[Rfam]
RNA sequence: CUGCAGCGCCGGGCCCCUCUGGCGAGGAUACCUAUUGUCCUCGUGAUGUCGGAGCUGCUCC
Number, nucleotide and partner (000 for none) at each position: 001c000002u000003g000004c000005a000006g055007c054008g000009c052010c051011g050012g049013g000014c000015c000016c000017c000018u000019c000020u000021g000022g044023c043024g042025a041026g040027g039028a038029u037030a000031c000032c000033u000034a000035u000036u000037g029038u028039c027040c026041u025042c024043g023044u022045g000046a000047u000048g000049u012050c011051g010052g009053a000054g007055c006056u000057g000058c000059u000060c000061c000
Shown here is a 61-nucleotide RNA from Devosia sp. YR412, a member of the family "terC RNA". The match comes from Rfam's covariance-model search (60 bits). The family's consensus secondary structure is taken from published work.